[Rfam]
Rfam assigns this 90-nucleotide RNA from Monodon monoceros to the family "Small nucleolar SNORD12/SNORD106".
The match comes from Rfam's covariance-model search (85 bits).
RNA sequence: GCCAUUGCAGCUGAUGACUGAACUUUUCCCCGUCAGAUCGACCCUGUUGAUCUAACUGAACUAUUAGCCAGUUUUGUCUGAUGCAUUGGC
Numbered sequence: 001g002c003c004a005u006u007g008c009a010g011c012u013g014a015u016g017a018c019u020g021a022a023c024u025u026u027u028c029c030c031c032g033u034c035a036g037a038u039c040g041a042c043c044c045u046g047u048u049g050a051u052c053u054a055a056c057u058g059a060a061c062u063a064u065u066a067g068c069c070a071g072u073u074u075u076g077u078c079u080g081a082u083g084c085a086u087u088g089g090c
Stems, first nucleotide, its partner, number of pairs: 001090004006085004

Clan: SNORD12 clan.